[Rfam]
RNA sequence: GCCGGUCCUCGGUAGUGGCUUCCGGUAAGAACGCACUUGACCGGGCGCUUCGAUCGAAGACCGGC
Numbered sequence: 001g002c003c004g005g006u007c008c009u010c011g012g013u014a015g016u017g018g019c020u021u022c023c024g025g026u027a028a029g030a031a032c033g034c035a036c037u038u039g040a041c042c043g044g045g046c047g048c049u050u051c052g053a054u055c056g057a058a059g060a061c062c063g064g065c
Stems, first nucleotide, its partner, number of pairs: 001065007009057005017049003021045006027038003
This 65-nucleotide RNA sequence from [Actinomadura] parvosata belongs to the Rfam family "Actino-pnp RNA". Pairs were carried over by alignment from the consensus structure, which is taken from published work. The source organism's lineage runs through Bacteria, Bacillati, Actinomycetota, Nonomuraea and [Actinomadura] parvosata. The family's RNA type in Rfam is cis-regulatory element.